[Rfam]
RNA sequence: CCAGAGGGUCGGGCGGCCGCGGCUUCUCCUUUAUGGGGGAAGGCGAGGAAAGUCCGGGCUCCAUGGAACGACGGUGCCGGGUAACGCCCGGCGGGGGCGACCCCAGGGACAGUGCCACAGAGAGCAGACCGCCUAAUCCUUUCGGGGACGAAGCCUUCGGGCGGGCAAGGGUGAAAGGGUGCGGCAAGAGCGCACCGCGCGUCCGGUAACGGAGGCGGCAUGGUAAACCCCACCGGGAGCAAGAUCGAAUAGGGACGGCAUAUGGGCCUCGUUCCGGCUCGUCGUCCGGGUUGAUUGCUGGAGGCGGCGCGCAAGCGUCGUCGUAGAGGAAUGGUCGCCUAUCCCGCGUUCGCGCGGGUGGACAGAACCCGGCUUACAGACCCUCUGGCGCG
Numbered sequence: 001c002c003a004g005a006g007g008g009u010c011g012g013g014c015g016g017c018c019g020c021g022g023c024u025u026c027u028c029c030u031u032u033a034u035g036g037g038g039g040a041a042g043g044c045g046a047g048g049a050a051a052g053u054c055c056g057g058g059c060u061c062c063a064u065g066g067a068a069c070g071a072c073g074g075u076g077c078c079g080g081g082u083a084a085c086g087c088c089c090g091g092c093g094g095g096g097g098c099g100a101c102c103c104c105a106g107g108g109a110c111a112g113u114g115c116c117a118c119a120g121a122g123a124g125c126a127g128a129c130c131g132c133c134u135a136a137u138c139c140u141u142u143c144g145g146g147g148a149c150g151a152a153g154c155c156u157u158c159g160g161g162c163g164g165g166c167a168a169g170g171g172u173g174a175a176a177g178g179g180u181g182c183g184g185c186a187a188g189a190g191c192g193c194a195c196c197g198c199g200c201g202u203c204c205g206g207u208a209a210c211g212g213a214g215g216c217g218g219c220a221u222g223g224u225a226a227a228c229c230c231c232a233c234c235g236g237g238a239g240c241a242a243g244a245u246c247g248a249a250u251a252g253g254g255a256c257g258g259c260a261u262a263u264g265g266g267c268c269u270c271g272u273u274c275c276g277g278c279u280c281g282u283c284g285u286c287c288g289g290g291u292u293g294a295u296u297g298c299u300g301g302a303g304g305c306g307g308c309g310c311g312c313a314a315g316c317g318u319c320g321u322c323g324u325a326g327a328g329g330a331a332u333g334g335u336c337g338c339c340u341a342u343c344c345c346g347c348g349u350u351c352g353c354g355c356g357g358g359u360g361g362a363c364a365g366a367a368c369c370c371g372g373c374u375u376a377c378a379g380a381c382c383c384u385c386u387g388g389c390g391c392g
Stems, first nucleotide, its partner, number of pairs: 001388010011377001012339007020045002023042006050375003054372005059239004067273004072235005077091005092106001093104004107230002112228002114224003129170002131166004137160002178196006197219001198217003202213004243296004253287006264280005303322008
Rfam assigns this 392-nucleotide sequence from Sphingomonas sp. Leaf343 to the family "Bacterial RNase P class A". The family's consensus secondary structure is taken from published work. The source organism's lineage runs through Bacteria, Alphaproteobacteria, Sphingomonadales, Sphingomonadaceae and Sphingomonas. The match comes from Rfam's covariance-model search (299 bits).